mir-980 microRNA precursor family: a 76-nucleotide sequence from Rhynchophorus ferrugineus. It scores 51 bits against the family's covariance model. Rfam links the family to the GO terms miRNA-mediated post-transcriptional gene silencing and RISC complex. The source organism's lineage runs through Eukaryota, Pterygota, Neoptera, Eumetabola and Rhynchophorus. The family has 8 seed sequences and 121 matches in Rfam 15.1.
RNA sequence: ACAGCGAUAGGGCUUUUCAUAGGGCUGCUCGCGUGCUAUAUACUGCAAGCUGCCUUUUGAAGGGCAUUGUUGCUAA
Numbered sequence: 001a002c003a004g005c006g007a008u009a010g011g012g013c014u015u016u017u018c019a020u021a022g023g024g025c026u027g028c029u030c031g032c033g034u035g036c037u038a039u040a041u042a043c044u045g046c047a048a049g050c051u052g053c054c055u056u057u058u059g060a061a062g063g064g065c066a067u068u069g070u071u072g073c074u075a076a
Stems, first nucleotide, its partner, number of pairs: 004073007012065004017060003023054002028049002031046002